[Rfam]
RNA sequence: AUCGCUUGUCGAUCUUUUCGGCUAAGAUUAAAGUGUAGUAUCUAUUUUCUUCAGCUUGAAAGUCGGCACUGAUCCCAACGGGGCCAGAGUCUUUCAAACAAUUUUUUGAGCAUUGAUCCGGAUCACUCCGAACGCACUCGGAUUUUUGUCAAGGAUCGUCUCGAUAUUGCAGUGUUGUCGAGAGUGGUUCACUCUCA
Numbered sequence: 001a002u003c004g005c006u007u008g009u010c011g012a013u014c015u016u017u018u019c020g021g022c023u024a025a026g027a028u029u030a031a032a033g034u035g036u037a038g039u040a041u042c043u044a045u046u047u048u049c050u051u052c053a054g055c056u057u058g059a060a061a062g063u064c065g066g067c068a069c070u071g072a073u074c075c076c077a078a079c080g081g082g083g084c085c086a087g088a089g090u091c092u093u094u095c096a097a098a099c100a101a102u103u104u105u106u107u108g109a110g111c112a113u114u115g116a117u118c119c120g121g122a123u124c125a126c127u128c129c130g131a132a133c134g135c136a137c138u139c140g141g142a143u144u145u146u147u148g149u150c151a152a153g154g155a156u157c158g159u160c161u162c163g164a165u166a167u168u169g170c171a172g173u174g175u176u177g178u179c180g181a182g183a184g185u186g187g188u189u190c191a192c193u194c195u196c197a
Stems, first nucleotide, its partner, number of pairs: 007027001009025001011023001013021002051066002054063001070086002073083004115150003120145003127142004153190006160182006
RNA: U2 spliceosomal RNA
Organism: Rotaria sordida